[Rfam]
RNA sequence: UGGAGGACAGAGAAGGUGGAGCAGUUCAUACCGUGCUGCCUUCCAUUGGUUAAGACCUCCAACAGUAAAGGGCUAGCCAGGCAAAGAACAUCCUCUCCAGCGCCCUGGAGGGGGCAGUACUGUGCUGGCCCACAUUGU
Number, nucleotide and partner (000 for none) at each position: 001u000002g060003g059004a058005g057006g056007a000008c000009a000010g000011a000012g000013a000014a000015g047016g046017u045018g044019g041020a000021g039022c038023a037024g036025u035026u000027c000028a000029u000030a000031c000032c000033g000034u000035g025036c024037u023038g022039c021040c000041u019042u000043c000044c018045a017046u016047u015048g000049g000050u000051u000052a000053a000054g000055a000056c006057c005058u004059c003060c002061a000062a000063c000064a000065g000066u000067a000068a000069a000070g000071g000072g000073c000074u000075a000076g000077c000078c000079a000080g130081g129082c128083a000084a000085a126086g125087a000088a123089c122090a121091u000092c000093c000094u000095c000096u000097c117098c000099a000100g000101c113102g000103c112104c111105c000106u000107g000108g000109a000110g000111g104112g103113g101114g000115c000116a000117g097118u000119a000120c000121u090122g089123u088124g000125c086126u085127g000128g082129c081130c080131c000132a000133c000134a000135u000136u000137g000138u000